[Rfam]
RNA sequence: GGAGGCGGCGACGCCCCCCCCGACUUGAGGCUGGCCACAGCCAGCCUGCCGUCUCCGCACCCCCAUUCUCGAUGAUGCAAAACUUGAAAAGAGCGGGCCUCGGAAGGUCCGCUC
Numbered sequence: 001g002g003a004g005g006c007g008g009c010g011a012c013g014c015c016c017c018c019c020c021c022g023a024c025u026u027g028a029g030g031c032u033g034g035c036c037a038c039a040g041c042c043a044g045c046c047u048g049c050c051g052u053c054u055c056c057g058c059a060c061c062c063c064c065a066u067u068c069u070c071g072a073u074g075a076u077g078c079a080a081a082a083c084u085u086g087a088a089a090a091g092a093g094c095g096g097g098c099c100u101c102g103g104a105a106g107g108u109c110c111g112c113u114c
Stems, first nucleotide, its partner, number of pairs: 001056010012022002029046007091114009
RNA: Cauldobacter sRNA CC3552